RNA: SAM-I/IV (S-adenosyl methionine) riboswitch aptamer
RNA sequence: CAGACGCAUUACGAGCAGGACGGGCGAAAGCCGAACCUGCACCAACCGAGCCCCCAAGGGCCGCGGUGGUUAUCGGAGCCGAAAGGCGCCGAGAUGAGAGCCGAAAGGCUAAAAACACAGUCCCUCGU
Numbered sequence: 001c002a003g004a005c006g007c008a009u010u011a012c013g014a015g016c017a018g019g020a021c022g023g024g025c026g027a028a029a030g031c032c033g034a035a036c037c038u039g040c041a042c043c044a045a046c047c048g049a050g051c052c053c054c055c056a057a058g059g060g061c062c063g064c065g066g067u068g069g070u071u072a073u074c075g076g077a078g079c080c081g082a083a084a085g086g087c088g089c090c091g092a093g094a095u096g097a098g099a100g101c102c103g104a105a106a107g108g109c110u111a112a113a114a115a116c117a118c119a120g121u122c123c124c125u126c127g128u
Base pairs, nucleotide, nucleotide: 007096008095009094010093015040016039017038018037019036041070042069043068046066047065048064050061051060099110100109101108102107